RNA sequence: AUCAUGUUGCUUGAACAGGAUCAGUUCUAUAGGCUUGUACCUCUAUAUCCUUGAUUUCUAAGGACACAGGAAAUCAUGUCUGGACGAUGAACUCAGGCUGCCUGGCUCAAGCUGUGAUUAACAGCACCAUGGGUUAGGGUUUCUAGCUCAUCCUGCGGUAGUUGAUCUUUCUGGGUUGACUUCGGUCUAGCUUGGGUGGCCAGGCAGUUGUCUAACAGACU
Numbered sequence: 001a002u003c004a005u006g007u008u009g010c011u012u013g014a015a016c017a018g019g020a021u022c023a024g025u026u027c028u029a030u031a032g033g034c035u036u037g038u039a040c041c042u043c044u045a046u047a048u049c050c051u052u053g054a055u056u057u058c059u060a061a062g063g064a065c066a067c068a069g070g071a072a073a074u075c076a077u078g079u080c081u082g083g084a085c086g087a088u089g090a091a092c093u094c095a096g097g098c099u100g101c102c103u104g105g106c107u108c109a110a111g112c113u114g115u116g117a118u119u120a121a122c123a124g125c126a127c128c129a130u131g132g133g134u135u136a137g138g139g140u141u142u143c144u145a146g147c148u149c150a151u152c153c154u155g156c157g158g159u160a161g162u163u164g165a166u167c168u169u170u171c172u173g174g175g176u177u178g179a180c181u182u183c184g185g186u187c188u189a190g191c192u193u194g195g196g197u198g199g200c201c202a203g204g205c206a207g208u209u210g211u212c213u214a215a216c217a218g219a220c221u
Base pairs, nucleotide, nucleotide: 001038002037005033007031013027014026015025016024018022043069044068046066048064049063050062051061052060053059078220079219080218081217082216097208098207099206100205101204102203103202104201105200106199107198110170111169114167121159122158124156125155126154129151130150131149132148133147134146135145136144137143171194173192174191176189178187179186180185

Notes
The family of this 221-nucleotide RNA from Salvia splendens is "Plant small nucleolar RNA U3". Lineage of the source: Eukaryota > Spermatophyta > Magnoliopsida > Lamiaceae > core Calosphace. Its family is annotated with nucleolus and RNA processing in the Gene Ontology. Small nucleolar RNAs (snoRNAs) are involved in the processing and modification of rRNA in the nucleolus. There are two main classes of snoRNAs: the box C/D class, and the box H/ACA class. U3 snoRNA is a member of the box C/D class. Indeed, the box C/D element is a subset of the six short sequence elements found in all U3 snoRNAs, namely boxes A, A', B, C, C', and D. The U3 snoRNA secondary structure is characterised by a small 5' domain (with boxes A and A'), and a larger 3' domain (with boxes B, C, C', and D), the two domains being linked by a single-stranded hinge. Boxes B and C form the B/C motif, which appears to be exclusive to U3 snoRNAs, and boxes C' and D form the C'/D motif. The latter is functionally similar to the C/D motifs found in other snoRNAs. The 5' domain and the hinge region act as a pre-rRNA-binding domain. The 3' domain has conserved protein-binding sites. Both the box B/C and box C'/D motifs are sufficient for nuclear retention of U3 snoRNA. The box C'/D motif is also necessary for nucleolar localisation, stability and hyper-methylation of U3 snoRNA. Both box B/C and C'/D motifs are involved in specific protein interactions and are necessary for the rRNA processing functions of U3 snoRNA.